[Rfam]
A member of the RNA family "Cyanobacterial functional RNA 1" from Synechococcus sp. CC9311, 57 nucleotides long.

RNA sequence: GUGCGGGCUUCGGCCUACACACUCCUCACACCCCCCGGCCCGACGCGUUCGGGCUUU
Numbered sequence: 001g002u003g004c005g006g007g008c009u010u011c012g013g014c015c016u017a018c019a020c021a022c023u024c025c026u027c028a029c030a031c032c033c034c035c036c037g038g039c040c041c042g043a044c045g046c047g048u049u050c051g052g053g054c055u056u057u
Base pairs, nucleotide, nucleotide: 001018002017003016005015006014037055038054039053040052041051042050043049

About this RNA:
For this family Rfam cites "A motif-based search in bacterial genomes identifies the ortholog of the small RNA Yfr1 in all lineages of cyanobacteria" (Voss et al., BMC Genomics, 2007). It is one of the family's seed sequences. Lineage of the source: Bacteria > Bacillati > Cyanophyceae > Synechococcales > Synechococcus. By type it is a small RNA.